RNA sequence: AGCUUUGGGUAAUUGAGCGCAGCUUUUGUUGCGUUAGGAAGGUCCAUGCUCGCACAGGCUGCGAUGCCUGUAGUGUUUGUGCUCGCUGAAAAAAUAAGGCGGGGCACCGGCAUGUCCGGUGACGGCGGAAAAAACGGCUAAGGUUUUACUAUGCCCGAGUAUUCCUGAAAAGUGCCACAGUGACGAUACAGCAGGGGAAACCUUGCUGGUGGAACGCGGUAAACCCCUCAAGCGGUAAACCCAAACUACGGUAGGGGAGCUUUGGAUAGCAAAUUGAAGCGAUUCCAGGGGAGAGUUUUUUAACUCUGAGAUAGAUGAUUACCUCGGUCCAACCAUUGCCUGGUGGUUGGGCUACGACAAAACAUGGCCUACAGAU
Numbered sequence: 001a002g003c004u005u006u007g008g009g010u011a012a013u014u015g016a017g018c019g020c021a022g023c024u025u026u027u028g029u030u031g032c033g034u035u036a037g038g039a040a041g042g043u044c045c046a047u048g049c050u051c052g053c054a055c056a057g058g059c060u061g062c063g064a065u066g067c068c069u070g071u072a073g074u075g076u077u078u079g080u081g082c083u084c085g086c087u088g089a090a091a092a093a094a095u096a097a098g099g100c101g102g103g104g105c106a107c108c109g110g111c112a113u114g115u116c117c118g119g120u121g122a123c124g125g126c127g128g129a130a131a132a133a134a135c136g137g138c139u140a141a142g143g144u145u146u147u148a149c150u151a152u153g154c155c156c157g158a159g160u161a162u163u164c165c166u167g168a169a170a171a172g173u174g175c176c177a178c179a180g181u182g183a184c185g186a187u188a189c190a191g192c193a194g195g196g197g198a199a200a201c202c203u204u205g206c207u208g209g210u211g212g213a214a215c216g217c218g219g220u221a222a223a224c225c226c227c228u229c230a231a232g233c234g235g236u237a238a239a240c241c242c243a244a245a246c247u248a249c250g251g252u253a254g255g256g257g258a259g260c261u262u263u264g265g266a267u268a269g270c271a272a273a274u275u276g277a278a279g280c281g282a283u284u285c286c287a288g289g290g291g292a293g294a295g296u297u298u299u300u301u302a303a304c305u306c307u308g309a310g311a312u313a314g315a316u317g318a319u320u321a322c323c324u325c326g327g328u329c330c331a332a333c334c335a336u337u338g339c340c341u342g343g344u345g346g347u348u349g350g351g352c353u354a355c356g357a358c359a360a361a362a363c364a365u366g367g368c369c370u371a372c373a374g375a376u
Base pairs, nucleotide, nucleotide: 005375006374007372008323009322010321011320012319013318014317016035017034018033019032020031021030040370041369042368044367045366046365047364048363050235051234052233053232054071055070056069057068058067059066077231078230079229081227082103083102084101085100086099087098104123105121106120107119108118109117110116124226125225127165128164129163130162136155137154138153142150143149144148172224173223174220175219176218189208190207191206192205193204194203195202196201240256241255242254260290261289262288263287264286265285266284292307293306294305295304296303327353329351330350332348334346

Rfam assigns this 376-nucleotide RNA sequence from Limosilactobacillus panis to the family "Bacterial RNase P class B". Rfam links the family to the GO terms ribonuclease P activity, tRNA processing and dimeric ribonuclease P complex. Rfam classes the family as a ribozyme. Clan: RNaseP clan. Ribonuclease P (RNase P) is a ubiquitous endoribonuclease, found in archaea, bacteria and eukarya as well as chloroplasts and mitochondria. Its best characterised activity is the generation of mature 5'-ends of tRNAs by cleaving the 5'-leader elements of precursor-tRNAs. NCBI's taxonomy places the organism under Bacteria, Bacillota, Lactobacillales, Lactobacillaceae, Limosilactobacillus panis. A reference for the family is Frank and Pace (1998), "Ribonuclease P: unity and diversity in a tRNA processing ribozyme", Annu Rev Biochem.